[Rfam]
RNA sequence: AAAUAGAUUUGUUAGGUGAGGCUCCUAUACAAACACAGGCUACUGCCCAAAAACGUCGAGAGACACCAAUGGGUAUAACAGGAAUUAUCGAGAUAAGGUUUUUCUUAACGUAGCUAAAGCAACGACUUUUACGUUGUAUAGUGCUAAAACUCAACGAUUGGAUCUUAAG
Numbered sequence: 001a002a003a004u005a006g007a008u009u010u011g012u013u014a015g016g017u018g019a020g021g022c023u024c025c026u027a028u029a030c031a032a033a034c035a036c037a038g039g040c041u042a043c044u045g046c047c048c049a050a051a052a053a054c055g056u057c058g059a060g061a062g063a064c065a066c067c068a069a070u071g072g073g074u075a076u077a078a079c080a081g082g083a084a085u086u087a088u089c090g091a092g093a094u095a096a097g098g099u100u101u102u103u104c105u106u107a108a109c110g111u112a113g114c115u116a117a118a119g120c121a122a123c124g125a126c127u128u129u130u131a132c133g134u135u136g137u138a139u140a141g142u143g144c145u146a147a148a149a150c151u152c153a154a155c156g157a158u159u160g161g162a163u164c165u166u167a168a169g
Stems, first nucleotide, its partner, number of pairs: 005165006011155002013096001015151003020145003025141008039114005045074005055064003081105004087099003116129003
RNA: M-box riboswitch aptamer (ykoK leader)
Organism: Vagococcus carniphilus